Rfam assigns this 71-nucleotide RNA sequence from Serilophus lunatus to the family "mir-10 microRNA precursor family".
Rfam 15.1 lists 3,853 matches to the family in 853 species.
[Rfam]
RNA sequence: UGGCAUAAACCCGUAGAUCCGAUCUUGUGUUGAAACACCUGCGCAAGCUCGUUUCUAUGGGUCUGUGUCAG
Numbered sequence: 001u002g003g004c005a006u007a008a009a010c011c012c013g014u015a016g017a018u019c020c021g022a023u024c025u026u027g028u029g030u031u032g033a034a035a036c037a038c039c040u041g042c043g044c045a046a047g048c049u050c051g052u053u054u055c056u057a058u059g060g061g062u063c064u065g066u067g068u069c070a071g
Stems, first nucleotide, its partner, number of pairs: 002069006010061003015056003020051003024047006
A search with the family's covariance model found it, with a score of 74 bits.
The organism belongs to Serilophus, within Eukaryota.
Rfam links the family to the GO terms RISC complex and miRNA-mediated post-transcriptional gene silencing.